Annotation
A member of the RNA family "Mason-Pfizer monkey virus packaging signal" from Sciurus vulgaris, 283 nucleotides long. For this family Rfam cites "Mutational analysis of the predicted secondary RNA structure of the Mason-Pfizer monkey virus packaging signal" (Mustafa et al., Virus Res, 2004).
RNA sequence: UGGCGCCCAAUGGUGUGGCAUUGGAUAAGGGAGAAUUUUCGAGGGAAGAGGCGUCUAAUUGUUCGGCCGAAGAAAAAAAAGUGAAAGUCAGUUCAACAAAGAUCGCCGUGGAAGCCUGCAGCUCUGUUCUUAAUGGUACAGUAGCGCCUAAGUAUGGGACAAGAAUUAAGUAAGUAUAAAGUUUUUGUUAAGCAAUUAAAAGAAGCUUUAAAGACACGGGGAGUAAAGGUUAAGAGUAAUGAUCUUUUUAAGUUUUUUGACCUUAUUAAGGACACCUGUCCGU
Numbered sequence: 001u002g003g004c005g006c007c008c009a010a011u012g013g014u015g016u017g018g019c020a021u022u023g024g025a026u027a028a029g030g031g032a033g034a035a036u037u038u039u040c041g042a043g044g045g046a047a048g049a050g051g052c053g054u055c056u057a058a059u060u061g062u063u064c065g066g067c068c069g070a071a072g073a074a075a076a077a078a079a080a081g082u083g084a085a086a087g088u089c090a091g092u093u094c095a096a097c098a099a100a101g102a103u104c105g106c107c108g109u110g111g112a113a114g115c116c117u118g119c120a121g122c123u124c125u126g127u128u129c130u131u132a133a134u135g136g137u138a139c140a141g142u143a144g145c146g147c148c149u150a151a152g153u154a155u156g157g158g159a160c161a162a163g164a165a166u167u168a169a170g171u172a173a174g175u176a177u178a179a180a181g182u183u184u185u186u187g188u189u190a191a192g193c194a195a196u197u198a199a200a201a202g203a204a205g206c207u208u209u210a211a212a213g214a215c216a217c218g219g220g221g222a223g224u225a226a227a228g229g230u231u232a233a234g235a236g237u238a239a240u241g242a243u244c245u246u247u248u249u250a251a252g253u254u255u256u257u258u259g260a261c262c263u264u265a266u267u268a269a270g271g272a273c274a275c276c277u278g279u280c281c282g283u
Stems, first nucleotide, its partner, number of pairs: 006031003037051004088136003092133002102128001104126001108122002111119001142162001144160001147158004167210003170206002217259008227245006268283001270281004
The family's RNA type in Rfam is cis-regulatory element.
From the family's description: This family represents a group of sequences that are related to the Mason-Pfizer monkey virus (MPMV) packaging signal. The packaging signal is located in the 5' UTR and is required for specific RNA encapsidation.
The match comes from Rfam's covariance-model search (159 bits).